[Rfam]
RNA sequence: UUUGAACGACAGGGGAGCGCUUCGGCGCUGAGAGUGCGGGAAACCGCAGACCCUCGAACCUGCCCGGUUAGUACCGGCGAAGGAAGUCGGGAAUCUCAGUUC
Numbered sequence: 001u002u003u004g005a006a007c008g009a010c011a012g013g014g015g016a017g018c019g020c021u022u023c024g025g026c027g028c029u030g031a032g033a034g035u036g037c038g039g040g041a042a043a044c045c046g047c048a049g050a051c052c053c054u055c056g057a058a059c060c061u062g063c064c065c066g067g068u069u070a071g072u073a074c075c076g077g078c079g080a081a082g083g084a085a086g087u088c089g090g091g092a093a094u095c096u097c098a099g100u101u102c
Stems, first nucleotide, its partner, number of pairs: 007089004011054004017028004035048005059083003064077004
The family of this 102-nucleotide RNA sequence from a Microbacteriaceae bacterium is "TPP riboswitch aptamer (THI element)". The base pairs follow the family's consensus structure, which is taken from published work. Lineage of the source: Bacteria > Actinomycetota > Actinomycetes > Micrococcales > Microbacteriaceae.